[Rfam]
RNA sequence: UAUCGCGCUUUUAAAAUACACACACGUUCCGUCACAUACGAUAGGGUCCCUUGGGGUUUCGUAUGGGGGAUGUGGAGGCUUAAC
Numbered sequence: 001u002a003u004c005g006c007g008c009u010u011u012u013a014a015a016a017u018a019c020a021c022a023c024a025c026g027u028u029c030c031g032u033c034a035c036a037u038a039c040g041a042u043a044g045g046g047u048c049c050c051u052u053g054g055g056g057u058u059u060c061g062u063a064u065g066g067g068g069g070a071u072g073u074g075g076a077g078g079c080u081u082a083a084c
Stems, first nucleotide, its partner, number of pairs: 023074008035065007043057001048056003
RNA: t44 RNA
Organism: Legionella fallonii